RNA: Ascomycota telomerase RNA, nucleotides 47 to 260
RNA sequence: UCCCCUUCAGUCCUCCGAUUCCCGUUUUCCGAAAGGAAUGUUCACCUGGACCUCUCGGCACUGGACUGGUAUUUCACGUUACUUCCAUCUUCUGAACCUGUAUCAGGUAUCAAGCUUGACGCGGAUGGAGUGCGUGAUCUCGUGCGUUCCUUCGGGGGCAGCGAGCCAGGCCUGUCGAGAGAAUGGGUCUCGGAACUUAACCCUAAGUAAUCUG
Numbered sequence: 001u002c003c004c005c006u007u008c009a010g011u012c013c014u015c016c017g018a019u020u021c022c023c024g025u026u027u028u029c030c031g032a033a034a035g036g037a038a039u040g041u042u043c044a045c046c047u048g049g050a051c052c053u054c055u056c057g058g059c060a061c062u063g064g065a066c067u068g069g070u071a072u073u074u075c076a077c078g079u080u081a082c083u084u085c086c087a088u089c090u091u092c093u094g095a096a097c098c099u100g101u102a103u104c105a106g107g108u109a110u111c112a113a114g115c116u117u118g119a120c121g122c123g124g125a126u127g128g129a130g131u132g133c134g135u136g137a138u139c140u141c142g143u144g145c146g147u148u149c150c151u152u153c154g155g156g157g158g159c160a161g162c163g164a165g166c167c168a169g170g171c172c173u174g175u176c177g178a179g180a181g182a183a184u185g186g187g188u189c190u191c192g193g194a195a196c197u198u199a200a201c202c203c204u205a206a207g208u209a210a211u212c213u214g
Base pairs, nucleotide, nucleotide: 009197010196011195015193016192017191018190